This 117-nucleotide RNA from Dillenia indica belongs to the Rfam family "Plastid-psbA-1 3UTR RNA".
Plastid psbA-1 is a non-coding RNA (ncRNA) present in plastids.
By type it is a cis-regulatory element.
RNA sequence: GUUGAAGCUCCAUCAAUAAAUGGAUAAGACUUUGGUCUUAGUGUAUAUGAGUUUUUGAAUAUAAAGUAAAGGAGCAAUAACAAAAUUUCUUUUUAAGGUUUGUUAUUGCUCCUUUUU
Numbered sequence: 001g002u003u004g005a006a007g008c009u010c011c012a013u014c015a016a017u018a019a020a021u022g023g024a025u026a027a028g029a030c031u032u033u034g035g036u037c038u039u040a041g042u043g044u045a046u047a048u049g050a051g052u053u054u055u056u057g058a059a060u061a062u063a064a065a066g067u068a069a070a071g072g073a074g075c076a077a078u079a080a081c082a083a084a085a086u087u088u089c090u091u092u093u094u095a096a097g098g099u100u101u102g103u104u105a106u107u108g109c110u111c112c113u114u115u116u117u
Base pairs, nucleotide, nucleotide: 009024010023011022012021013020068115069114070113071112072111073110074109075108076107077106078105079104080103082101083100084099087098088097090095